Rfam assigns this 117-nucleotide RNA from Brassica cretica to the family "MIR9563 microRNA precursor family". The match comes from Rfam's covariance-model search (93 bits). Rfam links the family to the GO terms miRNA-mediated post-transcriptional gene silencing and RISC complex. Lineage of the source: Eukaryota > Tracheophyta > Spermatophyta > Gunneridae > Brassica.

Nucleotides: 117
Base pairs, nucleotide, nucleotide: 011115012114013113014112015111016110017109018108019107020106021105022104023103024102025101026100027099028098029097030096031095032094033093034092035091036090037089038088039087042084043083044082045081046080047079
Number, partner (000 for none) and nucleotide at each position: 001000g002000g003000a004000a005000u006000u007000u008000a009000a010000a011115a012114a013113a014112c015111u016110g017109u018108u019107u020106c021105u022104u023103a024102a025101c026100u027099u028098u029097u030096a031095a032094c033093u034092a035091a036090a037089a038088a039087a040000a041000c042084u043083g044082a045081g046080a047079a048000c049000c050000g051000g052000u053000u054000c055000u056000u057000a058000a059000a060000u061000a062000a063000a064000g065000a066000c067000u068000u069000u070000a071000a072000g073000a074000a075000c076000c077000g078000g079047u080046u081045c082044u083043u084042a085000c086000c087039u088038u089037u090036u091035u092034u093033a094032g095031u096030u097029a098028a099027a100026a101025g102024u103023u104022a105021a106020g107019a108018a109017a110016c111015a112014g113013u114012u115011u116000c117000c